[Rfam]
RNA sequence: AGAUAUGUUCGUAUGAUAACGAACAGGAUAAUAAAAAGAAAUAUCAAACUAGA
Numbered sequence: 001a002g003a004u005a006u007g008u009u010c011g012u013a014u015g016a017u018a019a020c021g022a023a024c025a026g027g028a029u030a031a032u033a034a035a036a037a038g039a040a041a042u043a044u045c046a047a048a049c050u051a052g053a
Base pairs, nucleotide, nucleotide: 006025007024008023009022010021011020014046015045016044017043
Shown here is a 53-nucleotide RNA, a member of the family "6A RNA". The family's RNA type in Rfam is small RNA.